[Rfam]
RNA: tRNA
Organism: Cohnella candida
Nucleotides: 074
Base pairs, nucleotide, nucleotide: 001073002072003071004070005069006068007067010026011025012024013023028044029043030042031041032040050066051065052064053063054062
Number, partner (000 for none) and nucleotide at each position: 001073c002072g003071a004070g005069a006068c007067g008000u009000g010026g011025c012024u013023c014000a015000g016000c017000u018000u019000g020000g021000u022000a023013g024012a025011g026010c027000g028044c029043u030042u031041g032040g033000u034000u035000c036000g037000g038000g039000a040032c041031c042030a043029a044028g045000a046000g047000g048000u049000c050066g051065c052064a053063g054062g055000u056000u057000c058000g059000a060000a061000u062054c063053c064052u065051g066050u067007c068006g069005u070004c071003u072002c073001g074000a